[Rfam]
RNA sequence: AAGGAUACCCCUUCUCAAGCAUUGUUAGGUUUAUGGGCUACCAGUAAGCGAAAAAUGAUACAGGACGAAAAAAACAUAAUUCGAGAUUUUUCAGGAUGGAUUUUUUUAGGUAUCUAUCAAAACUAUUCUGAUGAUCAAUACAGUAUUUUUGUCGCAUUAUUAUUACGGUAGUGUAGACAUUAGUUUCCAAGCGGAAGAAACUGUGUGUUCAUUUUAUGGAUUUUCGUGUUGUACGAUUUUUUUCAGUUGCGUUAGCAACUACGUGCCCACAAUACUUCCGAUGCAUUUAGAUAAUUUUU
Numbered sequence: 001a002a003g004g005a006u007a008c009c010c011c012u013u014c015u016c017a018a019g020c021a022u023u024g025u026u027a028g029g030u031u032u033a034u035g036g037g038c039u040a041c042c043a044g045u046a047a048g049c050g051a052a053a054a055a056u057g058a059u060a061c062a063g064g065a066c067g068a069a070a071a072a073a074a075c076a077u078a079a080u081u082c083g084a085g086a087u088u089u090u091u092c093a094g095g096a097u098g099g100a101u102u103u104u105u106u107u108a109g110g111u112a113u114c115u116a117u118c119a120a121a122a123c124u125a126u127u128c129u130g131a132u133g134a135u136c137a138a139u140a141c142a143g144u145a146u147u148u149u150u151g152u153c154g155c156a157u158u159a160u161u162a163u164u165a166c167g168g169u170a171g172u173g174u175a176g177a178c179a180u181u182a183g184u185u186u187c188c189a190a191g192c193g194g195a196a197g198a199a200a201c202u203g204u205g206u207g208u209u210c211a212u213u214u215u216a217u218g219g220a221u222u223u224u225c226g227u228g229u230u231g232u233a234c235g236a237u238u239u240u241u242u243u244c245a246g247u248u249g250c251g252u253u254a255g256c257a258a259c260u261a262c263g264u265g266c267c268c269a270c271a272a273u274a275c276u277u278c279c280g281a282u283g284c285a286u287u288u289a290g291a292u293a294a295u296u297u298u299u
Base pairs, nucleotide, nucleotide: 019284020283021282022281023280024279059233060232061231062230063229065227066226067225075218076217077216078215079214083210084209085208129137130136131135138206139205140204141203142202143201144200146197147196148195149194150193151192152191247258248257249256250255
Dot-bracket structure: ..................((((((..................................(((((.(((.......(((((...(((...........................................(((...)))(((((((.(((((((......................................)))))))..))))))).)))...)))))......))).))))).............((((....))))....................))))))...............
Shown here is a 299-nucleotide part of an RNA from Saccharomyces paradoxus, a member of the family "Saccharomyces telomerase". Pairs were carried over by alignment from the consensus structure, which is taken from published work. The family's RNA type in Rfam is non-coding RNA gene. Clan: Telomerase clan. Lineage of the source: Eukaryota > Fungi > Dikarya > Saccharomycotina > Saccharomyces.